Purine riboswitch aptamer: a 99-nucleotide RNA sequence from Weissella ceti. The organism belongs to Weissella, within Bacteria. A search with the family's covariance model found it, with a score of 63 bits.
RNA sequence: AAGACUUUUUAAAUAAAUGCAGAUUUAAUUGUUGGAAUAUGGCCAACGAGUCUCUACCACCGACCAAAUUCGGUGACAAUCCGCAAAUGUCCUUCUAUG
Numbered sequence: 001a002a003g004a005c006u007u008u009u010u011a012a013a014u015a016a017a018u019g020c021a022g023a024u025u026u027a028a029u030u031g032u033u034g035g036a037a038u039a040u041g042g043c044c045a046a047c048g049a050g051u052c053u054c055u056a057c058c059a060c061c062g063a064c065c066a067a068a069u070u071c072g073g074u075g076a077c078a079a080u081c082c083g084c085a086a087a088u089g090u091c092c093u094u095c096u097a098u099g
Base pairs, nucleotide, nucleotide: 018085019084020083022081023080024079025078029049030048031047032046033045034044035043058075059074060073061072062071063070

Pairs were carried over by alignment from the consensus structure, which is taken from published work.